[Rfam]
RNA sequence: AUAAUGAUACUUCCGUAAAACGGUCACAAAGAUGAUGGUGCGAUUCCAAUGC
Numbered sequence: 001a002u003a004a005u006g007a008u009a010c011u012u013c014c015g016u017a018a019a020a021c022g023g024u025c026a027c028a029a030a031g032a033u034g035a036u037g038g039u040g041c042g043a044u045u046c047c048a049a050u051g052c
Stems, first nucleotide, its partner, number of pairs: 012049001013023003024035003036048003
The family of this 52-nucleotide sequence from Lachnospiraceae bacterium A4 is "pemK RNA". It scores 43 bits against the family's covariance model. The family's RNA type in Rfam is cis-regulatory element.